MIR5387 microRNA precursor family: a 94-nucleotide RNA from Sorghum bicolor.

RNA sequence: UUGUAACACGAACCGGUGCUAAAGGGUCCUGCCCAACGGCUACUGACAGGUGCUGUCGGGGUAGGGAUCCUUUAGCACCGGCCAGCGCCACGGG
Numbered sequence: 001u002u003g004u005a006a007c008a009c010g011a012a013c014c015g016g017u018g019c020u021a022a023a024g025g026g027u028c029c030u031g032c033c034c035a036a037c038g039g040c041u042a043c044u045g046a047c048a049g050g051u052g053c054u055g056u057c058g059g060g061g062u063a064g065g066g067a068u069c070c071u072u073u074a075g076c077a078c079c080g081g082c083c084a085g086c087g088c089c090a091c092g093g094g
Base pairs, nucleotide, nucleotide: 003091004090007087009085013081014080015079016078017077018076019075020074021073022072023071024070025069026068027067029065030064032060033059034058036056037055043049044048
Description: Its family is annotated with RISC complex and miRNA-mediated post-transcriptional gene silencing in the Gene Ontology. The family has 2 seed sequences and 1,029 matches in Rfam 15.1.